[Rfam]
RNA: MIR8024 microRNA precursor family
RNA sequence: UUGAAAGAUUUCAAGACUUCAACUUACAUACUUAAAGGAUUUGAAGACUUCAACUUGCAUACUUGUAGGAUUUGAAGACUUCACCU
Numbered sequence: 001u002u003g004a005a006a007g008a009u010u011u012c013a014a015g016a017c018u019u020c021a022a023c024u025u026a027c028a029u030a031c032u033u034a035a036a037g038g039a040u041u042u043g044a045a046g047a048c049u050u051c052a053a054c055u056u057g058c059a060u061a062c063u064u065g066u067a068g069g070a071u072u073u074g075a076a077g078a079c080u081u082c083a084c085c086u
Stems, first nucleotide, its partner, number of pairs: 002083004009076003013072002017068002020065002025059001027057002032053002035050003